[Rfam]
RNA: MIR6152 microRNA precursor family
Organism: Nicotiana tabacum
RNA sequence: UAGACAUAUUUUUGUAUUCGACUGUAUUCACGCAUGAAACAGGGGAUUACAAUUGUUUUUAAAUGAAAAGUGAAUCAAUUAACAUAAUAGACUCAU
Numbered sequence: 001u002a003g004a005c006a007u008a009u010u011u012u013u014g015u016a017u018u019c020g021a022c023u024g025u026a027u028u029c030a031c032g033c034a035u036g037a038a039a040c041a042g043g044g045g046a047u048u049a050c051a052a053u054u055g056u057u058u059u060u061a062a063a064u065g066a067a068a069a070g071u072g073a074a075u076c077a078a079u080u081a082a083c084a085u086a087a088u089a090g091a092c093u094c095a096u
Stems, first nucleotide, its partner, number of pairs: 003094002009090002012087004017082002020080002023077002026075006033065003036059007